The family of this 98-nucleotide RNA from Halopseudomonas bauzanensis is "Glycine riboswitch aptamer".
Taxonomically the source falls in Halopseudomonas (Bacteria, Pseudomonadota, Gammaproteobacteria, Pseudomonadaceae).
Rfam 15.1 lists 9,425 matches to the family in 5,228 species.
A search with the family's covariance model found it, with a score of 59 bits.
The pairing is the family consensus, mapped onto this sequence.
RNA sequence: GCACAGCCAGCUGGAGAGAGGUUGCCAAGGCAACCCACCGAAGGGGCAAGCAGUCCAUGACUGCGUAAACUCUCAGGUAAAAGGACAGGGGGAGAGGC
Numbered sequence: 001g002c003a004c005a006g007c008c009a010g011c012u013g014g015a016g017a018g019a020g021g022u023u024g025c026c027a028a029g030g031c032a033a034c035c036c037a038c039c040g041a042a043g044g045g046g047c048a049a050g051c052a053g054u055c056c057a058u059g060a061c062u063g064c065g066u067a068a069a070c071u072c073u074c075a076g077g078u079a080a081a082a083g084g085a086c087a088g089g090g091g092g093a094g095a096g097g098c
Stems, first nucleotide, its partner, number of pairs: 007092002011088003020035004037078003040074002044072003050066002